[Rfam]
RNA sequence: UAGAUAGAUUUUUGUAUUCGACUGUAUUCGCGACGUGAAACAGGAGAUUAUAAUUGUUUUUAAACGGAAAGUGAAUCAAUUAACAUAAUAGACUCCU
Numbered sequence: 001u002a003g004a005u006a007g008a009u010u011u012u013u014g015u016a017u018u019c020g021a022c023u024g025u026a027u028u029c030g031c032g033a034c035g036u037g038a039a040a041c042a043g044g045a046g047a048u049u050a051u052a053a054u055u056g057u058u059u060u061u062a063a064a065c066g067g068a069a070a071g072u073g074a075a076u077c078a079a080u081u082a083a084c085a086u087a088a089u090a091g092a093c094u095c096c097u
Base pairs, nucleotide, nucleotide: 003095004094009091010090012088013087014086015085017083018082020081021080023078024077026076027075028074029073030072031071034066035065036064037060038059039058040057041056042055043054